This 131-nucleotide RNA from Jaculus jaculus belongs to the Rfam family "Small nucleolar RNA SNORA65". From the family's description: U65 belongs to the H/ACA class of snoRNAs which are thought to guide the sites of modification of uridines to pseudouridines. The organism belongs to Jaculus, within Eukaryota. For this family Rfam cites "RNomics: an experimental approach that identifies 201 candidates for novel, small, non-messenger RNAs in mouse" (Huttenhofer et al., EMBO J, 2001).
RNA sequence: ACCGCCACUGCACCUGACCAGUUCUUGUUGGUUGGUGCAAUCCAGUUAUGAGCUGACAGUAAAACCCAGCUUUCAGGAAACAGGGUUGUUCUUCAUGUGGAUGAUUCUGCGCUGAAAGCAUGGGAACAGCU
Numbered sequence: 001a002c003c004g005c006c007a008c009u010g011c012a013c014c015u016g017a018c019c020a021g022u023u024c025u026u027g028u029u030g031g032u033u034g035g036u037g038c039a040a041u042c043c044a045g046u047u048a049u050g051a052g053c054u055g056a057c058a059g060u061a062a063a064a065c066c067c068a069g070c071u072u073u074c075a076g077g078a079a080a081c082a083g084g085g086u087u088g089u090u091c092u093u094c095a096u097g098u099g100g101a102u103g104a105u106u107c108u109g110c111g112c113u114g115a116a117a118g119c120a121u122g123g124g125a126a127c128a129g130c131u
Stems, first nucleotide, its partner, number of pairs: 007046004017036005023030001065124004069119004076113002081109006089101003
Source information: Its Rfam clan is "SNORA65 clan". Its family is annotated with nucleolus and RNA processing in the Gene Ontology.